Shown here is a 132-nucleotide sequence from Astyanax mexicanus, a member of the family "Small nucleolar RNA SNORA49". Pairs were carried over by alignment from the consensus structure, which was predicted with RNAalifold. It scores 40 bits against the family's covariance model. The snoRNA ACA49 has no identified RNA target. NB genomic sequence 1-nt different from published. Gene Ontology terms of the family: nucleolus and RNA processing. It is annotated as an H/ACA-box small nucleolar RNA. The organism belongs to Astyanax, within Eukaryota.
RNA sequence: GUUCCCCUCCCUUACUCCAGUCGCUCUCUUCGGUGGAGCGCUCUGGCAUUGUCUGGGGAAACAGCAAGCACUUCACCACACACAUUUACUGUGGUUACCCAACAGUAGAGAUUCAGUGGUGGAGUGGACAAG
Dot-bracket structure: ..(((((...(.....((((..(((((.......)))))...))))....)...))))).........(((.((........(.((..((((.........)))).)).)..........)).)))......